[Rfam]
RNA sequence: CAGCAGGAUAAGUUACAGUGCAGCUUGUGAAGUGCUGUGUUGUCGUUCCCCCUGCACAAACUAACUUGUUUCCAGCUAUCCCUGUUUGUCUCUUUCAUUGGACAACCAGGGACGCAAGGUCUCGGACAA
Numbered sequence: 001c002a003g004c005a006g007g008a009u010a011a012g013u014u015a016c017a018g019u020g021c022a023g024c025u026u027g028u029g030a031a032g033u034g035c036u037g038u039g040u041u042g043u044c045g046u047u048c049c050c051c052c053u054g055c056a057c058a059a060a061c062u063a064a065c066u067u068g069u070u071u072c073c074a075g076c077u078a079u080c081c082c083u084g085u086u087u088g089u090c091u092c093u094u095u096c097a098u099u100g101g102a103c104a105a106c107c108a109g110g111g112a113c114g115c116a117a118g119g120u121c122u123c124g125g126a127c128a129a
Stems, first nucleotide, its partner, number of pairs: 003055005015043010081110004086105004
This 129-nucleotide RNA sequence from Takifugu flavidus belongs to the Rfam family "Small nucleolar RNA SNORA63". The source organism's lineage runs through Eukaryota, Deuterostomia, Neoteleostei, Tetraodontiformes and Takifugu. From the family's description: E3 belongs to the H/ACA class of snoRNAs and is involved in the processing of eukaryotic pre-rRNA and has regions of complementarity to 18S rRNA. E3 is encoded in introns in the gene for protein synthesis initiation factor 4AII. On this family, see Mishra and Eliceiri, Proc Natl Acad Sci U S A 1997: "Three small nucleolar RNAs that are involved in ribosomal RNA precursor processing". The match comes from Rfam's covariance-model search (92 bits). Rfam 15.1 lists 1,279 matches to the family in 601 species.